[Rfam]
RNA sequence: CCCUUAUAUUUUAAAAGUUUCAAGUUGGUCCCUUAUCUUUAUUUUAGGUUUCAAGUUGAUCCCUCCCGUCAAUUGUUUUACUAUUACCGUUAAAUUUGGACACGUGUCAUCUGUCCAAGUGGAUCACGUGUCCAAAUUAGUUUGCCACGUGUCAAAACUUAACGGAAAUAGUAAAAAAAUUGACGGGAUGGACCAACUUGAAACCUAAAAUAAAGAUAAGGGACCAACUUGAAACUUUUAAAAGAUAAGGGA
Number, nucleotide and partner (000 for none) at each position: 001c000002c250003c249004u248005u247006a246007u245008a000009u000010u000011u000012u000013a000014a000015a000016a000017g000018u000019u000020u000021c000022a000023a229024g228025u227026u000027g225028g224029u223030c000031c221032c220033u219034u218035a217036u216037c215038u214039u213040u212041a211042u210043u209044u000045u207046a206047g205048g000049u000050u000051u000052c000053a000054a000055g000056u000057u000058g000059a000060u000061c000062c000063c000064u000065c000066c000067c000068g000069u000070c000071a000072a000073u000074u000075g000076u000077u000078u000079u000080a000081c000082u000083a000084u000085u000086a000087c000088c000089g000090u000091u000092a000093a000094a000095u000096u000097u000098g000099g000100a000101c000102a000103c000104g000105u000106g000107u000108c000109a000110u000111c000112u000113g000114u000115c000116c000117a000118a000119g000120u000121g000122g000123a000124u000125c000126a000127c000128g000129u000130g000131u000132c000133c000134a000135a000136a000137u000138u000139a000140g000141u000142u000143u000144g000145c000146c000147a000148c000149g000150u000151g000152u000153c000154a000155a000156a000157a000158c000159u000160u000161a000162a000163c000164g000165g000166a000167a000168a000169u000170a000171g000172u000173a000174a000175a000176a000177a000178a000179a000180u000181u000182g000183a000184c000185g000186g000187g000188a000189u000190g000191g000192a000193c000194c000195a000196a000197c000198u000199u000200g000201a000202a000203a000204c000205c047206u046207a045208a000209a043210a042211u041212a040213a039214a038215g037216a036217u035218a034219a033220g032221g031222g000223a029224c028225c027226a000227a025228c024229u023230u000231g000232a000233a000234a000235c000236u000237u000238u000239u000240a000241a000242a000243a000244g000245a007246u006247a005248a004249g003250g002251g000252a000
Source information:
Shown here is a 252-nucleotide RNA from Trifolium subterraneum, a member of the family "MIR2655 microRNA precursor family". The family has 25 seed sequences and 892 matches in Rfam 15.1.